This 93-nucleotide sequence from Anaerolinea thermolimosa belongs to the Rfam family "Selenocysteine transfer RNA". On this family, see Lowe and Eddy, Nucleic Acids Res 1997: "tRNAscan-SE: a program for improved detection of transfer RNA genes in genomic sequence". NCBI's taxonomy places the organism under Bacteria, Chloroflexota, Anaerolineales, Anaerolineaceae, Anaerolinea. The base pairs follow the family's consensus structure, which is taken from published work.

RNA sequence: GGGGAUGGAUGAGCCCCGGUGGGCUUCGCGGUCUUCAAAACCGUUGGCGGGUCGCGUUGCGGGCCGCGGUGGGUUCGACUCCCAUCCAUUCCC
Numbered sequence: 001g002g003g004g005a006u007g008g009a010u011g012a013g014c015c016c017c018g019g020u021g022g023g024c025u026u027c028g029c030g031g032u033c034u035u036c037a038a039a040a041c042c043g044u045u046g047g048c049g050g051g052u053c054g055c056g057u058u059g060c061g062g063g064c065c066g067c068g069g070u071g072g073g074u075u076c077g078a079c080u081c082c083c084a085u086c087c088a089u090u091c092c093c
Base pairs, nucleotide, nucleotide: 001093002092003091004090005089006088007087008086009085011026012025013024014023015022016021028044029043030042031041032040047067048066049065050064070084071083072082073081